RNA sequence: CCUUCAUUGAUAUUGUCUGUGUCAGGAUGGUAAACGAUCCGUUAUCUGCGCAGGGAAUUGCCUGAUAACGCAUAAGGUAAAAACACAAAUCUAUCCAUGCAAGCAUUCACCGCUGGUUUAUCCGGCGGUUUUUUUUGUCUGUCUGCCGGGCGGGUAAAAAAAUGGCCCCUUGUGCAGUUACGCUACAAGGGGCCUUGUCGGUGAGGAGCUAUCUCCGUUCAUUAAUCA
Number, nucleotide and partner (000 for none) at each position: 001c000002c000003u000004u000005c000006a000007u000008u000009g000010a000011u000012a000013u000014u000015g000016u000017c000018u032019g031020u030021g028022u027023c000024a000025g000026g000027a022028u021029g000030g020031u019032a018033a000034a000035c000036g000037a000038u000039c000040c070041g069042u068043u067044a066045u000046c064047u000048g062049c000050g061051c060052a059053g000054g000055g000056a000057a000058u000059u052060g051061c050062c048063u000064g046065a000066u044067a043068a042069c041070g040071c000072a000073u000074a000075a000076g000077g000078u000079a000080a000081a000082a000083a000084c000085a000086c000087a000088a000089a000090u000091c000092u000093a000094u000095c000096c000097a000098u000099g000100c000101a000102a000103g000104c000105a000106u000107u000108c000109a129110c128111c127112g126113c125114u124115g123116g122117u000118u000119u000120a000121u000122c116123c115124g114125g113126c112127g111128g110129u109130u000131u000132u000133u000134u000135u000136u000137g000138u000139c000140u000141g000142u000143c000144u000145g000146c000147c000148g000149g000150g000151c000152g000153g000154g000155u000156a000157a000158a000159a000160a000161a196162a195163u000164g194165g193166c192167c191168c190169c189170u188171u187172g186173u185174g183175c182176a000177g000178u000179u000180a000181c000182g175183c174184u000185a173186c172187a171188a170189g169190g168191g167192g166193c165194c164195u162196u161197g000198u000199c000200g000201g000202u000203g000204a000205g000206g000207a000208g000209c000210u000211a000212u000213c000214u000215c000216c000217g000218u000219u000220c000221a000222u000223u000224a000225a000226u000227c000228a000
A member of the RNA family "STnc560 Hfq binding RNA" from Citrobacter koseri, 228 nucleotides long. NCBI's taxonomy places the organism under Bacteria, Pseudomonadati, Pseudomonadota, Enterobacterales, Citrobacter koseri. Rfam classes the family as a small RNA.